[Rfam]
RNA: mir-124 microRNA precursor family
Organism: Xenoturbella bocki
RNA sequence: AGUGCUUCGUGUUCACAGCGAGGUCCUUGAUUCGUGUUACAAUAAUUAAGGCACGCGGUGAAUGCCAAGAACU
Numbered sequence: 001a002g003u004g005c006u007u008c009g010u011g012u013u014c015a016c017a018g019c020g021a022g023g024u025c026c027u028u029g030a031u032u033c034g035u036g037u038u039a040c041a042a043u044a045a046u047u048a049a050g051g052c053a054c055g056c057g058g059u060g061a062a063u064g065c066c067a068a069g070a071a072c073u
Stems, first nucleotide, its partner, number of pairs: 003071001005069002009065008020056001022054001025051008